[Rfam]
The family of this 512-nucleotide RNA sequence from Streptomyces sp. sk2.1 is "Saccharopolyspora sRNA 350".
RNA sequence: GUGACGGUGUGCUCCCACCGGCCGUCCCCGUCCAGGAGGGCGUGCUCCCCGAACCGGUCGCCGUCGGCGAGGACUUCCAGCGCGACCUCGUCACCGUAGUUGCCGACGGAGGUUUGGUUGACGCGGCCGUGGGCGAUCAGGUGGAGCUUGUCCGCGGGCGUCCCGCGCUCGGCCAGCGUCUCGCCCGCCCGGAAGUCCUGCUGGACGCAGCGUCCGGCGAGCGCGGUCAGCACCUCCAGGUCGUCGAAGCCGCGCAGCAUGGCCAGUUCGCCGAGCUCACGGGGGAUCACCCUGACGUGGGAGCCGUCCUGGACGAACUCCACGGUCCCGUCGCCGACGGUGUAGGACAGGCGGCGGUUCACCCGGUAGGCCCCGCCCCGGGCCUCCACCCAGGGGAGCAUCCGCAGCAGCCAGCGGGAGGUGAUCUCCUGCAUCUGCGGGGCCGAUUUGGUCGUGGUGGCCAGGUUGCGGGCGGCCGCCGUGCCCAGGCUGGAUUGCCGGGGCAGCUCCGG
Numbered sequence: 001g002u003g004a005c006g007g008u009g010u011g012c013u014c015c016c017a018c019c020g021g022c023c024g025u026c027c028c029c030g031u032c033c034a035g036g037a038g039g040g041c042g043u044g045c046u047c048c049c050c051g052a053a054c055c056g057g058u059c060g061c062c063g064u065c066g067g068c069g070a071g072g073a074c075u076u077c078c079a080g081c082g083c084g085a086c087c088u089c090g091u092c093a094c095c096g097u098a099g100u101u102g103c104c105g106a107c108g109g110a111g112g113u114u115u116g117g118u119u120g121a122c123g124c125g126g127c128c129g130u131g132g133g134c135g136a137u138c139a140g141g142u143g144g145a146g147c148u149u150g151u152c153c154g155c156g157g158g159c160g161u162c163c164c165g166c167g168c169u170c171g172g173c174c175a176g177c178g179u180c181u182c183g184c185c186c187g188c189c190c191g192g193a194a195g196u197c198c199u200g201c202u203g204g205a206c207g208c209a210g211c212g213u214c215c216g217g218c219g220a221g222c223g224c225g226g227u228c229a230g231c232a233c234c235u236c237c238a239g240g241u242c243g244u245c246g247a248a249g250c251c252g253c254g255c256a257g258c259a260u261g262g263c264c265a266g267u268u269c270g271c272c273g274a275g276c277u278c279a280c281g282g283g284g285g286a287u288c289a290c291c292c293u294g295a296c297g298u299g300g301g302a303g304c305c306g307u308c309c310u311g312g313a314c315g316a317a318c319u320c321c322a323c324g325g326u327c328c329c330g331u332c333g334c335c336g337a338c339g340g341u342g343u344a345g346g347a348c349a350g351g352c353g354g355c356g357g358u359u360c361a362c363c364c365g366g367u368a369g370g371c372c373c374c375g376c377c378c379c380g381g382g383c384c385u386c387c388a389c390c391c392a393g394g395g396g397a398g399c400a401u402c403c404g405c406a407g408c409a410g411c412c413a414g415c416g417g418g419a420g421g422u423g424a425u426c427u428c429c430u431g432c433a434u435c436u437g438c439g440g441g442g443c444c445g446a447u448u449u450g451g452u453c454g455u456g457g458u459g460g461c462c463a464g465g466u467u468g469c470g471g472g473c474g475g476c477c478g479c480c481g482u483g484c485c486c487a488g489g490c491u492g493g494a495u496u497g498c499c500g501g502g503g504c505a506g507c508u509c510c511g512g
Stems, first nucleotide, its partner, number of pairs: 006390004011385001014382003021327001022325003025316002031313007044304006051233001054230001056228006062111001064109002072103001077102001079100001082097003117222003122217001126213002130209001132206001134204001138200003143197002149191002154188007162176001165173002235295002240290002243287003250282003254278001256277003262269001329342004351379001353377005362370002391431007399423003403418001405416001407415001437476002440473001443470001446467001447465006477511002480506001482505001484503003488499003
A search with the family's covariance model found it, with a score of 118 bits. Lineage of the source: Bacteria > Bacillati > Actinomycetota > Actinomycetes > Streptomyces. On this family, see Liu et al., PLoS One 2013: "Prediction and characterization of small non-coding RNAs related to secondary metabolites in Saccharopolyspora erythraea". Gene Ontology term of the family: regulation of secondary metabolite biosynthetic process.